[Rfam]
RNA: Small nucleolar RNA SNORD60
Organism: Ameiurus melas
RNA sequence: AGUCGCUGAUGACUCCUUUUUAAACAUUUUUCUGACACCUUCUAUGAGGGCUGCACUGCAGUCUUUGAUUAUUCAUUGAACCUGAGGCUU
Numbered sequence: 001a002g003u004c005g006c007u008g009a010u011g012a013c014u015c016c017u018u019u020u021u022a023a024a025c026a027u028u029u030u031u032c033u034g035a036c037a038c039c040u041u042c043u044a045u046g047a048g049g050g051c052u053g054c055a056c057u058g059c060a061g062u063c064u065u066u067g068a069u070u071a072u073u074c075a076u077u078g079a080a081c082c083u084g085a086g087g088c089u090u
Base pairs, nucleotide, nucleotide: 001089002088003087004086050062051061052060053059054058